[Rfam]
RNA sequence: CCGUGGCCUGGUUCAAGUAAUCCAGGAUAGGCUGUUACCAUCCCCGGCCUAUUCUCGAUUACUUGUCCCAGGCACUG
Numbered sequence: 001c002c003g004u005g006g007c008c009u010g011g012u013u014c015a016a017g018u019a020a021u022c023c024a025g026g027a028u029a030g031g032c033u034g035u036u037a038c039c040a041u042c043c044c045c046g047g048c049c050u051a052u053u054c055u056c057g058a059u060u061a062c063u064u065g066u067c068c069c070a071g072g073c074a075c076u077g
Base pairs, nucleotide, nucleotide: 002077003076007072008071009070010069011068014065015064016063017062018061019060020059021058022057024055025054026053027052028051029050030049031048032047033046